[Rfam]
RNA sequence: UUUCUAAUGUAAGUAUGUCUCAGGCAAUAUUUGGGGCAUAUUUAUAUUAAAA
Numbered sequence: 001u002u003u004c005u006a007a008u009g010u011a012a013g014u015a016u017g018u019c020u021c022a023g024g025c026a027a028u029a030u031u032u033g034g035g036g037c038a039u040a041u042u043u044a045u046a047u048u049a050a051a052a
Stems, first nucleotide, its partner, number of pairs: 006048007014040003018036004022031001

The family of this 52-nucleotide RNA sequence from Echinops telfairi is "mir-1302 microRNA precursor family".
The source organism's lineage runs through Eukaryota, Craniata, Teleostomi, Sarcopterygii and Echinops.
It is one of the family's seed sequences.
The literature on the family includes a 2008 paper in Genome Res by Morin et al., "Application of massively parallel sequencing to microRNA profiling and discovery in human embryonic stem cells".